RNA sequence: GCUGCGGCCCGGGCCCCUCUGACGAUCAUCGUGAUCGUGAUGUCGGAUCGCAUCG
Numbered sequence: 001g002c003u004g005c006g007g008c009c010c011g012g013g014c015c016c017c018u019c020u021g022a023c024g025a026u027c028a029u030c031g032u033g034a035u036c037g038u039g040a041u042g043u044c045g046g047a048u049c050g051c052a053u054c055g
Stems, first nucleotide, its partner, number of pairs: 006049002009046004022038006